[Rfam]
RNA sequence: CGGGGGCUACGUGUGGUGCCGUCCGCGCCCCCUAUGGAGUAACAGAAGCACCAC
Numbered sequence: 001c002g003g004g005g006g007c008u009a010c011g012u013g014u015g016g017u018g019c020c021g022u023c024c025g026c027g028c029c030c031c032c033u034a035u036g037g038a039g040u041a042a043c044a045g046a047a048g049c050a051c052c053a054c
Stems, first nucleotide, its partner, number of pairs: 002032006013054007035044002

Rfam assigns this 54-nucleotide RNA sequence from Lentivirus capartenc to the family "ribosomal frameshift element". The literature on the family includes a 2005 paper in Mol Cell by Bekaert and Rousset, "An extended signal involved in eukaryotic -1 frameshifting operates through modification of the E site tRNA". Rfam links the family to the GO term viral translational frameshifting.